[Rfam]
RNA sequence: GGCGUCGAGGAGCGCUGCAGCUCCGGAGCACCCGGGGCGAGGCUCGGCGACCGGCGGCAAUCGUGAAAACGGCGCUCGGUUGCA
Numbered sequence: 001g002g003c004g005u006c007g008a009g010g011a012g013c014g015c016u017g018c019a020g021c022u023c024c025g026g027a028g029c030a031c032c033c034g035g036g037g038c039g040a041g042g043c044u045c046g047g048c049g050a051c052c053g054g055c056g057g058c059a060a061u062c063g064u065g066a067a068a069a070c071g072g073c074g075c076u077c078g079g080u081u082g083c084a
Stems, first nucleotide, its partner, number of pairs: 003049006021037006
Background: Rfam assigns this 84-nucleotide RNA sequence from Sediminicurvatus halobius to the family "SAH (S-adenosyl-L-homocysteine) riboswitch aptamer". Its family is annotated with S-adenosylhomocysteine metabolic process and regulation of gene expression in the Gene Ontology. The base pairs follow the family's consensus structure, which is taken from published work. NCBI's taxonomy places the organism under Bacteria, Pseudomonadati, Pseudomonadota, Ectothiorhodospiraceae, Sediminicurvatus. A search with the family's covariance model found it, with a score of 52 bits.